[Rfam]
Rfam assigns this 115-nucleotide RNA from Eutrema salsugineum to the family "Small nucleolar RNA Z278". About the family: snoZ278 is a C/D box small nucleolar RNA. Its methylation guide targets have not been reported. It is annotated as a C/D-box small nucleolar RNA. Taxonomically the source falls in Eutrema (Eukaryota, Streptophytina, Magnoliopsida, Pentapetalae). The literature on the family includes a 2003 paper in Nucleic Acids Res by Chen et al., "The high diversity of snoRNAs in plants: identification and comparative study of 120 snoRNA genes from Oryza sativa". The base pairs follow the family's consensus structure, which was predicted with PFOLD. Rfam links the family to the GO terms nucleolus and RNA processing.
RNA sequence: GCCGGUGAUGAUUCAAUCCAAAUUUCGAGGUGCAGUGGAGCUGAGACCCUGUUUUCAGGGAGAACCCCUCAGCAGAAACUGCAAUUUCUAUGAAGAUAAUGGAUUUAACUGAGGC
Numbered sequence: 001g002c003c004g005g006u007g008a009u010g011a012u013u014c015a016a017u018c019c020a021a022a023u024u025u026c027g028a029g030g031u032g033c034a035g036u037g038g039a040g041c042u043g044a045g046a047c048c049c050u051g052u053u054u055u056c057a058g059g060g061a062g063a064a065c066c067c068c069u070c071a072g073c074a075g076a077a078a079c080u081g082c083a084a085u086u087u088c089u090a091u092g093a094a095g096a097u098a099a100u101g102g103a104u105u106u107a108a109c110u111g112a113g114g115c
Stems, first nucleotide, its partner, number of pairs: 001115003047060005